[Rfam]
RNA sequence: UUUUUACACAGGCAUUUAUUGCGCUGUAUACGUGGGUAGCUGAAUUAACGUUUAAGCGGCGUAUUCCGUCGCCAGCCCCACGGUUAGGAAGGCCGCGUUUAGCGGCUUUUCCUAUAGUUAG
Numbered sequence: 001u002u003u004u005u006a007c008a009c010a011g012g013c014a015u016u017u018a019u020u021g022c023g024c025u026g027u028a029u030a031c032g033u034g035g036g037u038a039g040c041u042g043a044a045u046u047a048a049c050g051u052u053u054a055a056g057c058g059g060c061g062u063a064u065u066c067c068g069u070c071g072c073c074a075g076c077c078c079c080a081c082g083g084u085u086a087g088g089a090a091g092g093c094c095g096c097g098u099u100u101a102g103c104g105g106c107u108u109u110u111c112c113u114a115u116a117g118u119u120a121g
Stems, first nucleotide, its partner, number of pairs: 008027004012022003031082006039076004043052003056072006087111010
A member of the RNA family "DUF3800-I RNA" from Gardnerella greenwoodii, 121 nucleotides long. The source organism's lineage runs through Bacteria, Actinomycetota, Actinomycetes, Gardnerella and Gardnerella greenwoodii. Rfam classes the family as a small RNA. Rfam describes the family as follows. Actinobacteria, Firmicutes, Fusobacteria, Proteobacteria (1 example), Tenericutes (2 examples). The base pairs follow the family's consensus structure, which is taken from published work.